[Rfam]
RNA sequence: CAUAUGUUUCAAGGGGUGGUGAAAUUCCACACCGGCGGUGAUAGUCCGCUAACAGACCCGCGCGGUCUGCCGAAUCGGUGAAAUUCCGAUACCGACGGUAUAGUCCGGAUGAAAGAAACAGGCU
Numbered sequence: 001c002a003u004a005u006g007u008u009u010c011a012a013g014g015g016g017u018g019g020u021g022a023a024a025u026u027c028c029a030c031a032c033c034g035g036c037g038g039u040g041a042u043a044g045u046c047c048g049c050u051a052a053c054a055g056a057c058c059c060g061c062g063c064g065g066u067c068u069g070c071c072g073a074a075u076c077g078g079u080g081a082a083a084u085u086c087c088g089a090u091a092c093c094g095a096c097g098g099u100a101u102a103g104u105c106c107g108g109a110u111g112a113a114a115g116a117a118a119c120a121g122g123c124u
Stems, first nucleotide, its partner, number of pairs: 003122001005120006017029003031104002033094002035049004044092002053069002074090005096107003
Shown here is a 124-nucleotide RNA sequence from Ruminococcus sp. CAG:579, a member of the family "FMN riboswitch aptamer (RFN element)".
Gene Ontology term of the family: FMN binding.
The organism belongs to Ruminococcus, within Bacteria.